[Rfam]
RNA sequence: CCAUGGGGGCGGCUGGGGACAGCCCCACGGGGGUGGCUGG
Number, nucleotide and partner (000 for none) at each position: 001c030002c029003a000004u027005g026006g025007g000008g000009g000010c000011g000012g000013c000014u000015g000016g000017g000018g000019a000020c000021a000022g000023c000024c000025c006026c005027a004028c000029g002030g001031g000032g000033g000034u000035g000036g000037c000038u000039g000040g000
Notes: The family of this 40-nucleotide RNA sequence is "Prion pseudoknot". The family's RNA type in Rfam is cis-regulatory element. This family represents a predicted pseudoknot structure found in prion protein mRNA. It has been suggested that the family has a possible effect in prion protein translation.